[Rfam]
RNA sequence: UAAUACAAGUGUCAAAAGCAUAAAAUUCUGUGUAAGCUUGCUUGCAAAAGAAUUUAUUAUCUUUUGACAAGAAAAAAUGGGUAAGUAGCCGUUUUUUGCAAAAAAAUGAGCGGAUUACGAAUAUUUUUGCAAGAACCCUGAGAAGCGAAGUUCCUGCAAUCCUGUAUCA
Numbered sequence: 001u002a003a004u005a006c007a008a009g010u011g012u013c014a015a016a017a018g019c020a021u022a023a024a025a026u027u028c029u030g031u032g033u034a035a036g037c038u039u040g041c042u043u044g045c046a047a048a049a050g051a052a053u054u055u056a057u058u059a060u061c062u063u064u065u066g067a068c069a070a071g072a073a074a075a076a077a078u079g080g081g082u083a084a085g086u087a088g089c090c091g092u093u094u095u096u097u098g099c100a101a102a103a104a105a106a107u108g109a110g111c112g113g114a115u116u117a118c119g120a121a122u123a124u125u126u127u128u129g130c131a132a133g134a135a136c137c138c139u140g141a142g143a144a145g146c147g148a149a150g151u152u153c154c155u156g157c158a159a160u161c162c163u164g165u166a167u168c169a
Stems, first nucleotide, its partner, number of pairs: 001169001003167005010069004016063003020058001023055007031047001032045005071128005077122002081118004088111002090108008135160001139159001144155002147153002
A member of the RNA family "Clostridiales-1 RNA" from Catonella morbi, 169 nucleotides long. The organism belongs to Catonella morbi, within Bacteria. The family's RNA type in Rfam is small RNA.